[Rfam]
RNA sequence: ACCCCAUGAUAUAAGCCGGCAGGAAAAAGAUAAUAACAUUUUCCUGUGACAAAAAUGUUUAUCCGAUGUGUGUAUGGGGCAAUAUUUACUAAAUUGAUUGCAACAAAGAAUGAUUCGGAGCACA
Numbered sequence: 001a002c003c004c005c006a007u008g009a010u011a012u013a014a015g016c017c018g019g020c021a022g023g024a025a026a027a028a029g030a031u032a033a034u035a036a037c038a039u040u041u042u043c044c045u046g047u048g049a050c051a052a053a054a055a056u057g058u059u060u061a062u063c064c065g066a067u068g069u070g071u072g073u074a075u076g077g078g079g080c081a082a083u084a085u086u087u088a089c090u091a092a093a094u095u096g097a098u099u100g101c102a103a104c105a106a107a108g109a110a111u112g113a114u115u116c117g118g119a120g121c122a123c124a
Base pairs, nucleotide, nucleotide: 019047020046021045022044023043024042025041026040063118064117065116066115075105076104079101080100081099084098085097086096
RNA: Small nucleolar RNA snoR639/H1
Organism: Ceratitis capitata